[Rfam]
RNA sequence: GGGGCGGGAGGGCUCGAAAGGGUCCGCCGGGGUUUUGGGAAGGUGAGAGCUGAUGAUGCUGCCUCCCCUCGCCCGGCUC
Numbered sequence: 001g002g003g004g005c006g007g008g009a010g011g012g013c014u015c016g017a018a019a020g021g022g023u024c025c026g027c028c029g030g031g032g033u034u035u036u037g038g039g040a041a042g043g044u045g046a047g048a049g050c051u052g053a054u055g056a057u058g059c060u061g062c063c064u065c066c067c068c069u070c071g072c073c074c075g076g077c078u079c
Base pairs, nucleotide, nucleotide: 001079002078003077005075006074007073008072010025011024012023013022014021028071029070030069031068032067
RNA: DUF3800-VI RNA
Organism: Todus mexicanus